[Rfam]
RNA sequence: AGAAUCCUGAUGUGUUCGUCCGUACCAAAGUGUUUUGACCGAACACCUUUAUAAUUGGGAGCUCGUUUGUUUCUAUGUUGCGUGCGGGCCUUAACCAUGAGGAAGCACAAUAAAUAUAGAACAGAGCACCCACCUGCCAUGAGCGGGAUCAAAGCUUUAUACUGGACGGCACGAUCGGGACUGCU
Numbered sequence: 001a002g003a004a005u006c007c008u009g010a011u012g013u014g015u016u017c018g019u020c021c022g023u024a025c026c027a028a029a030g031u032g033u034u035u036u037g038a039c040c041g042a043a044c045a046c047c048u049u050u051a052u053a054a055u056u057g058g059g060a061g062c063u064c065g066u067u068u069g070u071u072u073c074u075a076u077g078u079u080g081c082g083u084g085c086g087g088g089c090c091u092u093a094a095c096c097a098u099g100a101g102g103a104a105g106c107a108c109a110a111u112a113a114a115u116a117u118a119g120a121a122c123a124g125a126g127c128a129c130c131c132a133c134c135u136g137c138c139a140u141g142a143g144c145g146g147g148a149u150c151a152a153a154g155c156u157u158u159a160u161a162c163u164g165g166a167c168g169g170c171a172c173g174a175u176c177g178g179g180a181c182u183g184c185u
Stems, first nucleotide, its partner, number of pairs: 003182001005180007012172004017168003032155007039147002057131003061127004068121001072120007084106002089102005
Notes: Shown here is a 185-nucleotide RNA from Virgibacillus pantothenticus, a member of the family "6S / SsrS RNA". From the family's description: E. coli 6S RNA was the first non coding RNA to be sequenced, but its function was unknown until recently. It consists of 184 nucleotides that fold into an extended hairpin structure with a large single-stranded internal bulge. The 6S RNA specifically associates with RNA polymerase holoenzyme containing the sigma70 specificity factor. The family's RNA type in Rfam is non-coding RNA gene.